[Rfam]
RNA sequence: GUAAGCUAGGUCUGUGGUUGAAAGUCGAGGCUAGUCGCAGGCAAAACGAUCCACGUAACUCAAACAAAGUUUUGAUGAGCAUGGUGCGGUAUAGAAGUAAGUCCUACCAAUUUUAAUUGAGAGGGGUAGUAGUGAGAGGGUAAUUCUGGGUAGCGAAAUCUCCAGUAGGCGAGUGUGGGGGCAAAGACCAGGUCAGCUAGCUUAA
Numbered sequence: 001g002u003a004a005g006c007u008a009g010g011u012c013u014g015u016g017g018u019u020g021a022a023a024g025u026c027g028a029g030g031c032u033a034g035u036c037g038c039a040g041g042c043a044a045a046a047c048g049a050u051c052c053a054c055g056u057a058a059c060u061c062a063a064a065c066a067a068a069g070u071u072u073u074g075a076u077g078a079g080c081a082u083g084g085u086g087c088g089g090u091a092u093a094g095a096a097g098u099a100a101g102u103c104c105u106a107c108c109a110a111u112u113u114u115a116a117u118u119g120a121g122a123g124g125g126g127u128a129g130u131a132g133u134g135a136g137a138g139g140g141u142a143a144u145u146c147u148g149g150g151u152a153g154c155g156a157a158a159u160c161u162c163c164a165g166u167a168g169g170c171g172a173g174u175g176u177g178g179g180g181g182c183a184a185a186g187a188c189c190a191g192g193u194c195a196g197c198u199a200g201c202u203u204a205a
Base pairs, nucleotide, nucleotide: 002204003203004202005201006200007199008198009197012196013195014194015190016189017188018187019186028176030174031041034090035089036088037087038086039085050084051083058076060074062072063071082183103169104168105167106166107165108119109118110117111116123162124161125160126159132154133153138147139146140145
Dot-bracket structure: .((((((((..((((((((........(.([..((((((.]........((......(.(.((.......)).).).....[))))))))............(((((((((....))))...((((.....((....(((....))).....))....))))..)))))....).)......]..)))))...))))))))))).
A member of the RNA family "raiA RNA", 205 nucleotides long. The base pairs follow the family's consensus structure, which is taken from published work.